[Rfam]
RNA sequence: UCACCCUUACUUAAACAACACACACACAUCGACACAUAUGCCGGGGUGCCUUAACGGGUCGGUUACAUGGGAUGUGUGGAGGCCUAAC
Numbered sequence: 001u002c003a004c005c006c007u008u009a010c011u012u013a014a015a016c017a018a019c020a021c022a023c024a025c026a027c028a029u030c031g032a033c034a035c036a037u038a039u040g041c042c043g044g045g046g047u048g049c050c051u052u053a054a055c056g057g058g059u060c061g062g063u064u065a066c067a068u069g070g071g072a073u074g075u076g077u078g079g080a081g082g083c084c085u086a087a088c
Base pairs, nucleotide, nucleotide: 023078024077025076026075027074028073029072030071035069036068037067039065040063041062042061043060048059049058050057051056
RNA: t44 RNA